The record is a 123-nucleotide RNA from Desulfotomaculum nigrificans, which matches "Molybdenum/Tungsten riboswitch aptamer (Moco RNA motif)" in Rfam.
[Rfam]
RNA sequence: UAAAAUAUAUAUCUCCGAGCUUACAGCUCUAAGACAUUGACCUGUUAUGGGCUGUAAGCCGAUAGGGUUUAUCUGGAAACGGGUAGGCCUCCUGGUGCGGAAAGGAGAGUUAUGGUGCGGUCU
Numbered sequence: 001u002a003a004a005a006u007a008u009a010u011a012u013c014u015c016c017g018a019g020c021u022u023a024c025a026g027c028u029c030u031a032a033g034a035c036a037u038u039g040a041c042c043u044g045u046u047a048u049g050g051g052c053u054g055u056a057a058g059c060c061g062a063u064a065g066g067g068u069u070u071a072u073c074u075g076g077a078a079a080c081g082g083g084u085a086g087g088c089c090u091c092c093u094g095g096u097g098c099g100g101a102a103a104g105g106a107g108a109g110u111u112a113u114g115g116u117g118c119g120g121u122c123u
Stems, first nucleotide, its partner, number of pairs: 004116001006114001012108005019059011033046004065090011091100002
The match comes from Rfam's covariance-model search (75 bits).
Gene Ontology terms of the family: tungstate binding, molybdenum ion binding and regulation of gene expression.